[Rfam]
RNA: TPP riboswitch aptamer (THI element)
RNA sequence: GAAACCGACACGGGGUGCCGCGCGAAGGGCCGGCUGAGAUCCAGACCCGUUGAACCUGUCCGGCUAGUACCGGCGAAGGGAUGUCUUUUGUCUUCGAC
Number, nucleotide and partner (000 for none) at each position: 001g000002a000003a000004a000005c000006c000007g085008a084009c083010a082011c049012g048013g047014g046015g000016u043017g034018c033019c032020g031021c000022g000023c000024g000025a000026a000027g000028g000029g000030c000031c020032g019033g018034c017035u000036g000037a000038g000039a000040u000041c000042c000043a016044g000045a000046c014047c013048c012049g011050u000051u000052g000053a000054a000055c079056c078057u077058g000059u000060c073061c072062g071063g070064c000065u000066a000067g000068u000069a000070c063071c062072g061073g060074c000075g000076a000077a057078g056079g055080g000081a000082u010083g009084u008085c007086u000087u000088u000089u000090g000091u000092c000093u000094u000095c000096g000097a000098c000